[Rfam]
RNA: Makes More Granules Regulator RNA (mmgR)
Organism: Rhizobiales bacterium GAS113
RNA sequence: AUCGUAUGCCCUCCUUGGGCGUUUCCUCCCUAGACUUGGGCCGCCUUAGGGCGGCCUCUUUUUCUCUAGGGA
Number, nucleotide and partner (000 for none) at each position: 001a000002u000003c000004g000005u000006a000007u000008g020009c019010c018011c017012u000013c000014c000015u000016u000017g011018g010019g009020c008021g000022u000023u000024u000025c000026c000027u000028c000029c000030c000031u000032a000033g000034a000035c000036u000037u000038g057039g056040g055041c054042c053043g052044c051045c050046u000047u000048a000049g000050g045051g044052c043053g042054g041055c040056c039057u038058c000059u000060u000061u000062u000063u000064c000065u000066c000067u000068a000069g000070g000071g000072a000